Record summary: A member of the RNA family "Glycine riboswitch aptamer" from Enterocloster bolteae, 98 nucleotides long. The match comes from Rfam's covariance-model search (44 bits).

RNA sequence: GACUCUGGAGAAGGUCACUAAAAUGUGAAUACCGAUGAAGCAACCGGCGGCAUAGCAGCAACCGCGUCAGGGAAACUUUCAGGUAAAAGGACAGAGGC
Numbered sequence: 001g002a003c004u005c006u007g008g009a010g011a012a013g014g015u016c017a018c019u020a021a022a023a024u025g026u027g028a029a030u031a032c033c034g035a036u037g038a039a040g041c042a043a044c045c046g047g048c049g050g051c052a053u054a055g056c057a058g059c060a061a062c063c064g065c066g067u068c069a070g071g072g073a074a075a076c077u078u079u080c081a082g083g084u085a086a087a088a089g090g091a092c093a094g095a096g097g098c
Stems, first nucleotide, its partner, number of pairs: 001098001003096005015028003031084003034080002038078003044071002